Notes:
This 371-nucleotide RNA from Prevotella sp. CAG:485 belongs to the Rfam family "Bacterial RNase P class A". Ribonuclease P (RNase P) is a ubiquitous endoribonuclease, found in archaea, bacteria and eukarya as well as chloroplasts and mitochondria. Taxonomically the source falls in Prevotella (Bacteria, Pseudomonadati, Bacteroidota, Prevotellaceae). It scores 221 bits against the family's covariance model.
RNA sequence: CGGCCCGGCGGGUCCGUCGCCACCGUAAGCAAUCAUUGUGAGACGGAGGGAGGAAAGUCCGGGCAACAAAGGGCACCAUGCUUCUUAACGGGAAGCGACCGGCAACGGUCGGUAGCUGCAGAAGAAAAGAACCGCCCUCCUCAGCGGGGGUAAGGGUGAGAAGGUGAGGUAAGAGCUCACCGGCGUCUGUAGUGAUGCAGACGGCCGUGCACACCAUGGGUUGCAAUGUCAAGUAAACCGGCGCUAUGAGGGCGGCCCGCCCCAUGCCGGAGGGUAGGCAGCUGGAGCGUGCGGGCAACCGUACGCCGAGAUAAAUGACGGACAGCGGUCAACGACCGUUACAUAACCCGGCUUAUAAGUCAGACCGGUUC
Number, nucleotide and partner (000 for none) at each position: 001c367002g366003g365004c000005c363006c000007g361008g360009c359010g000011g356012g323013u322014c321015c320016g319017u318018c317019g000020c050021c049022a000023c046024c045025g044026u043027a000028a000029g000030c000031a000032a000033u000034c000035a000036u000037u000038g000039u000040g000041a000042g000043a026044c025045g024046g023047a000048g000049g021050g020051a000052g000053g000054a000055a354056a353057g352058u000059c351060c350061g349062g348063g347064c223065a222066a221067c220068a000069a000070a000071g258072g257073g256074c255075a000076c219077c218078a217079u216080g215081c095082u094083u093084c092085u091086u000087a000088a000089c000090g000091g085092g084093a083094a082095g081096c111097g000098a109099c108100c107101g106102g000103c000104a000105a000106c101107g100108g099109u098110c000111g096112g214113u213114a000115g000116c000117u000118g210119c209120a208121g000122a000123a000124g000125a000126a000127a000128a000129g000130a000131a000132c155133c154134g151135c150136c149137c148138u147139c146140c000141u000142c000143a000144g000145c000146g139147g138148g137149g136150g135151u134152a000153a000154g133155g132156g000157u000158g000159a000160g000161a000162a000163g181164g180165u179166g178167a177168g176169g000170u000171a000172a000173g000174a000175g000176c168177u167178c166179a165180c164181c163182g000183g205184c203185g202186u201187c200188u199189g198190u197191a196192g000193u000194g000195a000196u191197g190198c189199a188200g187201a186202c185203g184204g000205c183206c000207g000208u120209g119210c118211a000212c000213a113214c112215c080216a079217u078218g077219g076220g067221u066222u065223g064224c000225a000226a000227u280228g279229u278230c277231a000232a000233g000234u000235a000236a000237a000238c270239c269240g268241g267242c266243g000244c000245u000246a000247u000248g000249a000250g262251g261252g260253c259254g000255g074256c073257c072258c071259g253260c252261c251262c250263c000264a000265u000266g242267c241268c240269g239270g238271a000272g000273g000274g000275u000276a000277g230278g229279c228280a227281g000282c000283u000284g000285g000286a000287g306288c305289g304290u303291g302292c301293g300294g299295g000296c000297a000298a000299c294300c293301g292302u291303a290304c289305g288306c287307c000308g000309a000310g000311a000312u000313a000314a000315a000316u000317g018318a017319c016320g015321g014322a013323c012324a000325g000326c000327g000328g000329u000330c000331a000332a000333c000334g000335a000336c000337c000338g000339u000340u000341a000342c000343a000344u000345a000346a000347c063348c062349c061350g060351g059352c057353u056354u055355a000356u011357a000358a000359g009360u008361c007362a000363g005364a000365c003366c002367g001368g000369u000370u000371c000